[Rfam]
RNA sequence: GGGGGUUUAUGGGAGCUCCUUUACGCUCCAGUUCUGAAAGGAGAUGAUGGUAUCCACAGCUGCUGGUUCAUGAGUACCUAUGGCUGCACAAUAUAUAUAGCAAUGUUGUGUGCAAACUAUGGGUGUGCAUGACCUCGGAGAAGUGGUUGCCUUGAUCUUUCUGGCCUUGGAGUGAAGGGAGCUCUCAUAACCCUUCUA
Numbered sequence: 001g002g003g004g005g006u007u008u009a010u011g012g013g014a015g016c017u018c019c020u021u022u023a024c025g026c027u028c029c030a031g032u033u034c035u036g037a038a039a040g041g042a043g044a045u046g047a048u049g050g051u052a053u054c055c056a057c058a059g060c061u062g063c064u065g066g067u068u069c070a071u072g073a074g075u076a077c078c079u080a081u082g083g084c085u086g087c088a089c090a091a092u093a094u095a096u097a098u099a100g101c102a103a104u105g106u107u108g109u110g111u112g113c114a115a116a117c118u119a120u121g122g123g124u125g126u127g128c129a130u131g132a133c134c135u136c137g138g139a140g141a142a143g144u145g146g147u148u149g150c151c152u153u154g155a156u157c158u159u160u161c162u163g164g165c166c167u168u169g170g171a172g173u174g175a176a177g178g179g180a181g182c183u184c185u186c187a188u189a190a191c192c193c194u195u196c197u198a
Base pairs, nucleotide, nucleotide: 013184014183015182016181017180018179019178020177024174025173026172027171028170029169030168060140061139063137065135069131070130071129072128077123
Rfam assigns this 198-nucleotide RNA from Vitis vinifera to the family "MIR159 microRNA precursor family". On this family, see Rajagopalan et al., Genes Dev 2006: "A diverse and evolutionarily fluid set of microRNAs in Arabidopsis thaliana". The source organism's lineage runs through Eukaryota, Streptophytina, eudicotyledons, Viteae and Vitis. It is one of the family's seed sequences.